[Rfam]
RNA: Bacterial large subunit ribosomal RNA, nucleotides 621 to 851
Organism: Mycoplasmopsis fermentans
RNA sequence: GAGUUAUGACAGCAUGCGAGGUUAAGCAGAAAAAAGCGGAGCCGUAGAGAAAUCGAGUCUUAAUAGGGCGUCUUAGUAUGUUGUCAUAUACCCGAAACCAUGUGAUCUAUUCAUGAGCAGGCUGAAACUUGGCUAACCCCAAGCGGAGGGCCGAACCGUAGUACGCUGAAAAGUGCCCGGAUGACUUGUGAAUAGUGGAGAAAUUCCAAUCGAACUUGGAGAUAGCUGGUU
Number, nucleotide and partner (000 for none) at each position: 001g000002a000003g000004u000005u088006a087007u086008g085009a084010c083011a082012g081013c080014a079015u078016g077017c076018g000019a000020g043021g042022u041023u040024a000025a000026g037027c036028a000029g000030a000031a000032a000033a000034a000035a000036g027037c026038g000039g000040a023041g022042c021043c020044g000045u000046a000047g054048a053049g000050a000051a000052a000053u048054c047055g000056a000057g069058u068059c067060u066061u000062a000063a000064u000065a000066g060067g059068g058069c057070g000071u000072c000073u000074u000075a000076g017077u016078a015079u014080g013081u012082u011083g010084u009085c008086a007087u006088a005089u000090a000091c229092c228093c000094g226095a000096a000097a000098c219099c218100a217101u000102g215103u214104g000105a000106u000107c195108u194109a193110u192111u191112c190113a189114u188115g187116a186117g185118c183119a000120g152121g151122c150123u149124g000125a000126a000127a000128c143129u142130u141131g140132g139133c000134u000135a000136a000137c000138c000139c132140c131141a130142a129143g128144c000145g000146g000147a000148g000149g123150g122151c121152c120153g000154a000155a000156c180157c179158g178159u000160a000161g176162u175163a174164c173165g000166c000167u000168g000169a000170a000171a000172a000173g164174u163175g162176c161177c000178c158179g157180g156181a000182u000183g118184a000185c117186u116187u115188g114189u113190g112191a111192a110193u109194a108195g107196u000197g207198g206199a205200g000201a000202a000203a000204u000205u199206c198207c197208a000209a000210u000211c000212g000213a000214a103215c102216u000217u100218g099219g098220a000221g000222a000223u000224a000225g000226c094227u000228g092229g091230u000231u000